[Rfam]
RNA: Bacterial RNase P class A
Organism: Sphingomonas sp. SKA58
RNA sequence: CCAGAGGGCCGGGCGGCCGCGGCGUGGCGGGUAACUUCCACGGCGAGGAAAGUCCGGGCUUCACGAAAUGACGGUGCCGGCUAACGGCCGGCUGGAGCGAUCCAAGGGACAGUGCAACAGAAAGCAGGUCGCUAAGGCCUAGGCCCAGCGAAAUUGAAAGGGUGCGGUAAGAGCGCACCGCGUCUGCGGCAACGCAAGACGGCACGGUAAACCCCACCGGAAGCAAGACCGAAUAGGGGCGGCGCGCAGCGUCAUGCUGCUAGGCAGAUUUCGGCCGAGACCGCCCGGGUUGGUUGCUGGAGGAACGGAGCAAUCCGUUCCCUAGAGGAAUGGUCGCCCAUCCUUCGCAAGAAGGUGGACAGAACCCGGCUUACAGGCCCUCUGGCAUU
Numbered sequence: 001c002c003a004g005a006g007g008g009c010c011g012g013g014c015g016g017c018c019g020c021g022g023c024g025u026g027g028c029g030g031g032u033a034a035c036u037u038c039c040a041c042g043g044c045g046a047g048g049a050a051a052g053u054c055c056g057g058g059c060u061u062c063a064c065g066a067a068a069u070g071a072c073g074g075u076g077c078c079g080g081c082u083a084a085c086g087g088c089c090g091g092c093u094g095g096a097g098c099g100a101u102c103c104a105a106g107g108g109a110c111a112g113u114g115c116a117a118c119a120g121a122a123a124g125c126a127g128g129u130c131g132c133u134a135a136g137g138c139c140u141a142g143g144c145c146c147a148g149c150g151a152a153a154u155u156g157a158a159a160g161g162g163u164g165c166g167g168u169a170a171g172a173g174c175g176c177a178c179c180g181c182g183u184c185u186g187c188g189g190c191a192a193c194g195c196a197a198g199a200c201g202g203c204a205c206g207g208u209a210a211a212c213c214c215c216a217c218c219g220g221a222a223g224c225a226a227g228a229c230c231g232a233a234u235a236g237g238g239g240c241g242g243c244g245c246g247c248a249g250c251g252u253c254a255u256g257c258u259g260c261u262a263g264g265c266a267g268a269u270u271u272c273g274g275c276c277g278a279g280a281c282c283g284c285c286c287g288g289g290u291u292g293g294u295u296g297c298u299g300g301a302g303g304a305a306c307g308g309a310g311c312a313a314u315c316c317g318u319u320c321c322c323u324a325g326a327g328g329a330a331u332g333g334u335c336g337c338c339c340a341u342c343c344u345u346c347g348c349a350a351g352a353a354g355g356u357g358g359a360c361a362g363a364a365c366c367c368g369g370c371u372u373a374c375a376g377g378c379c380c381u382c383u384g385g386c387a388u389u
Base pairs, nucleotide, nucleotide: 001385002384003383004382005381006380007379008378009377010376011374012338013337014336015335016334017333018332020045021044023042024041025040026039027038050372051371052370054369055368056367057366058365059223060222061221062220072219073218074217075216076215077091078090079089080088081087092106093104094103095102096101107214108213112212113211114208115207129153131149132148133147136145137144138143161179162178163177164176165175166174180203181201182200183199184198185197186195187194188193227295228294229293230292237286238285239284240283241282242281270279271278272277302321303320304319305318306317307316308315309314